The family of this 47-nucleotide RNA from Bacteroides sp. D2 is "CRISPR RNA direct repeat element". Rfam links the family to the GO term defense response.

[Rfam]
RNA sequence: AUUGUGAUUUACUUUUAAAUUAGUAACUUUGAACCAUUGGAAACAAU
Numbered sequence: 001a002u003u004g005u006g007a008u009u010u011a012c013u014u015u016u017a018a019a020u021u022a023g024u025a026a027c028u029u030u031g032a033a034c035c036a037u038u039g040g041a042a043a044c045a046a047u
Stems, first nucleotide, its partner, number of pairs: 014033006